[Rfam]
RNA sequence: AGGGGUGCGAUGAUUGUAACACAAAUUCCUCGUUCCGGAAGACACGACAGUGUCAUUUGUGGACGAUCUAUAUACACCCAUAGAAUAUGAGCACU
Numbered sequence: 001a002g003g004g005g006u007g008c009g010a011u012g013a014u015u016g017u018a019a020c021a022c023a024a025a026u027u028c029c030u031c032g033u034u035c036c037g038g039a040a041g042a043c044a045c046g047a048c049a050g051u052g053u054c055a056u057u058u059g060u061g062g063a064c065g066a067u068c069u070a071u072a073u074a075c076a077c078c079c080a081u082a083g084a085a086u087a088u089g090a091g092c093a094c095u
Stems, first nucleotide, its partner, number of pairs: 003095002006093002